[Rfam]
RNA sequence: AAGUGUUACAGCUCUUCUAGAAUUUGUCUAGCAGGUUUUCUGGUUUUCACUGGAAGACUCCC
Numbered sequence: 001a002a003g004u005g006u007u008a009c010a011g012c013u014c015u016u017c018u019a020g021a022a023u024u025u026g027u028c029u030a031g032c033a034g035g036u037u038u039u040c041u042g043g044u045u046u047u048c049a050c051u052g053g054a055a056g057a058c059u060c061c062c
Base pairs, nucleotide, nucleotide: 034059035058036057037056038055039054040053041052042051043050044049

U7 small nuclear RNA: a 62-nucleotide RNA from Colobus angolensis. The base pairs follow the family's consensus structure, which was predicted with PFOLD. From the family's description: Animal histone pre-mRNAs are spliced by a different mechanism than nuclear pre-mRNAs and self-splicing introns. This processing involves the U7 snRNP, which contains only one RNA species: U7. The 5' end of U7 RNA is thought to base-pair to a conserved spacer element downstream of the cleavage site in histone pre-mRNA. This family contains a number of annotated U7 pseudogenes. NCBI's taxonomy places the organism under Eukaryota, Gnathostomata, Teleostomi, Dipnotetrapodomorpha, Colobus angolensis. The match comes from Rfam's covariance-model search (65 bits).